Shown here is a 123-nucleotide sequence from Eremococcus coleocola, a member of the family "FMN riboswitch aptamer (RFN element)".
A search with the family's covariance model found it, with a score of 102 bits.
About the family: The RFN element is a highly conserved domain that is found frequently in the 5'-untranslated regions of prokaryotic mRNAs that encode for flavin mononucleotide (FMN) biosynthesis and transport proteins.
The source organism's lineage runs through Bacteria, Bacillota, Aerococcaceae, Eremococcus and Eremococcus coleocola.
Pairs were carried over by alignment from the consensus structure, which is taken from published work.
RNA sequence: AAACGUCUUCAGGGGCAGGGUGAAAUUCCCGACCGGUGGUAAAGUCCACGAACAAACUAGCUUAGUUUGUAGAACUGGUGUAAUUCCAGUACCGACAGUAAAGUCUGGAUAAAGGAGAUUAUU
Dot-bracket structure: ....((((((.......(((.......))).[[((((((....[[))))..(((.............)))...(((((.......)))))]])).(((....]])))......))))))....